[Rfam]
RNA sequence: UCGGAUUGAGUAUUACAUCAGGUACUGGUGUCGAUAUUCGAGACGGAAAGCAUCGAUUUCCUAGUUGCCAACUUACCAGUACUUAUGUUAUGCUCUCUUCGC
Numbered sequence: 001u002c003g004g005a006u007u008g009a010g011u012a013u014u015a016c017a018u019c020a021g022g023u024a025c026u027g028g029u030g031u032c033g034a035u036a037u038u039c040g041a042g043a044c045g046g047a048a049a050g051c052a053u054c055g056a057u058u059u060c061c062u063a064g065u066u067g068c069c070a071a072c073u074u075a076c077c078a079g080u081a082c083u084u085a086u087g088u089u090a091u092g093c094u095c096u097c098u099u100c101g102c
Base pairs, nucleotide, nucleotide: 002101003100004099005098009094010093011092012091015088016087017086018085021083022082023081024080025079026078027077028076029075
RNA: mir-12 microRNA precursor family
Organism: Culex quinquefasciatus